[Rfam]
RNA sequence: AGCCUCAUUCUAUAUAAGAAUGGGCACUGUCAGUGUCCAGAACUGGUGAAUGUGGCGAAAUUGAGACACAGGCCAUGCUUCCAUCACAGUACAUAUGUUACAGUGGUGACAAUGAGACCUGUAACAUUU
Numbered sequence: 001a002g003c004c005u006c007a008u009u010c011u012a013u014a015u016a017a018g019a020a021u022g023g024g025c026a027c028u029g030u031c032a033g034u035g036u037c038c039a040g041a042a043c044u045g046g047u048g049a050a051u052g053u054g055g056c057g058a059a060a061u062u063g064a065g066a067c068a069c070a071g072g073c074c075a076u077g078c079u080u081c082c083a084u085c086a087c088a089g090u091a092c093a094u095a096u097g098u099u100a101c102a103g104u105g106g107u108g109a110c111a112a113u114g115a116g117a118c119c120u121g122u123a124a125c126a127u128u129u
Base pairs, nucleotide, nucleotide: 002056003055004054006052007051008050021039022038023037024036025035026034027033068122069121070120071119072118082108083107084106085105086104087103
RNA: Small nucleolar RNA SNORA1